[Rfam]
RNA sequence: UGUGGGGGCCGCACCAGAAGUGCUCACGUUGCAACCCCUGCCAGGUAAUACCUGCAAAUUCUGCU
Numbered sequence: 001u002g003u004g005g006g007g008g009c010c011g012c013a014c015c016a017g018a019a020g021u022g023c024u025c026a027c028g029u030u031g032c033a034a035c036c037c038c039u040g041c042c043a044g045g046u047a048a049u050a051c052c053u054g055c056a057a058a059u060u061c062u063g064c065u
Stems, first nucleotide, its partner, number of pairs: 005038004013065001015063005020032003042054005
RNA: Mammalian CPEB3 ribozyme